A member of the RNA family "Glycine riboswitch aptamer" from Hydrogenophaga sp. IBVHS2, 89 nucleotides long. It scores 56 bits against the family's covariance model. Lineage of the source: Bacteria > Pseudomonadati > Betaproteobacteria > Burkholderiales > Hydrogenophaga.

RNA sequence: GGCACCGCAUCGGGAGAGCCCGGCCACAGGCCGGCGCCGAAGGAGCAACCGCCCCGGAAACUCUCAGGCCCCAGGACCGGUCGGUGCCG
Numbered sequence: 001g002g003c004a005c006c007g008c009a010u011c012g013g014g015a016g017a018g019c020c021c022g023g024c025c026a027c028a029g030g031c032c033g034g035c036g037c038c039g040a041a042g043g044a045g046c047a048a049c050c051g052c053c054c055c056g057g058a059a060a061c062u063c064u065c066a067g068g069c070c071c072c073a074g075g076a077c078c079g080g081u082c083g084g085u086g087c088c089g
Stems, first nucleotide, its partner, number of pairs: 006084001009081005020034004036069003039065002043063003049057002